[Rfam]
RNA sequence: CGGGAAGUGGCUCAGUUUGGUAGAGCAUUCGGUUUGGGACCGAAGGGUCGCAGGUUCAAAUCCUGUCUUCCCGA
Numbered sequence: 001c002g003g004g005a006a007g008u009g010g011c012u013c014a015g016u017u018u019g020g021u022a023g024a025g026c027a028u029u030c031g032g033u034u035u036g037g038g039a040c041c042g043a044a045g046g047g048u049c050g051c052a053g054g055u056u057c058a059a060a061u062c063c064u065g066u067c068u069u070c071c072c073g074a
Stems, first nucleotide, its partner, number of pairs: 001073007010026004028044005050066005